Overview:
This 128-nucleotide sequence from Thalassomonas sp. M1454 belongs to the Rfam family "c-di-GMP-I-GGC riboswitch aptamer".
RNA sequence: CUCGUCCAAGGCAAACCUGAUGAAAAUCAGGGACGCAAAGUUACCGGUCUAAAGGUGGCGAUUAAGUUUUUAAUUAGGUUUUAUUACUGAUUAUUUAAUCAAAAUCAAUGACAGCGGGACUGCCGACU
Dot-bracket structure: ..((......((...((((((....))))))..[))..((((.((((((............................................................))).])))))))..))...
Numbered sequence: 001c002u003c004g005u006c007c008a009a010g011g012c013a014a015a016c017c018u019g020a021u022g023a024a025a026a027u028c029a030g031g032g033a034c035g036c037a038a039a040g041u042u043a044c045c046g047g048u049c050u051a052a053a054g055g056u057g058g059c060g061a062u063u064a065a066g067u068u069u070u071u072a073a074u075u076a077g078g079u080u081u082u083a084u085u086a087c088u089g090a091u092u093a094u095u096u097a098a099u100c101a102a103a104a105u106c107a108a109u110g111a112c113a114g115c116g117g118g119a120c121u122g123c124c125g126a127c128u
Stems, first nucleotide, its partner, number of pairs: 003125002011036002016031006034114001039121004044117003047112003
Overview: The base pairs follow the family's consensus structure, which is taken from published work.